RNA sequence: AGCCUAAACCAGCAAGUUGCUGGCAUGGCGAAAAGUAAAGUCCAAACAGGAUAAAAAACCCAUCACAUGGGGUGUCCUGUUUGGCCGUACUGGGAAACUGGUACGAGUGACUUCGGUCACU
Numbered sequence: 001a002g003c004c005u006a007a008a009c010c011a012g013c014a015a016g017u018u019g020c021u022g023g024c025a026u027g028g029c030g031a032a033a034a035g036u037a038a039a040g041u042c043c044a045a046a047c048a049g050g051a052u053a054a055a056a057a058a059c060c061c062a063u064c065a066c067a068u069g070g071g072g073u074g075u076c077c078u079g080u081u082u083g084g085c086c087g088u089a090c091u092g093g094g095a096a097a098c099u100g101g102u103a104c105g106a107g108u109g110a111c112u113u114c115g116g117u118c119a120c121u
Base pairs, nucleotide, nucleotide: 002029003028004027009023010022011021012020013019014018042084043083044082045081046080047079048078049077050076051075052074057073059071060070061069062068086105087104088103089102090101091100092099093098106121107120108119109118110117111116

This 121-nucleotide sequence belongs to the Rfam family "LOOT RNA". It is one of the family's seed sequences. By type it is a small RNA.